[Rfam]
RNA: mir-9229 microRNA precursor family
RNA sequence: GCAAACACCCCUAUGGAGCAGGACUUGCUUCAGUAGGGCCUUGGUGCUCACUGACUCUGCUCCUUGAGUGUGUUGCU
Numbered sequence: 001g002c003a004a005a006c007a008c009c010c011c012u013a014u015g016g017a018g019c020a021g022g023a024c025u026u027g028c029u030u031c032a033g034u035a036g037g038g039c040c041u042u043g044g045u046g047c048u049c050a051c052u053g054a055c056u057c058u059g060c061u062c063c064u065u066g067a068g069u070g071u072g073u074u075g076c077u
Stems, first nucleotide, its partner, number of pairs: 001076003005073004010068001012066002015063006022057002030054005036048002038045002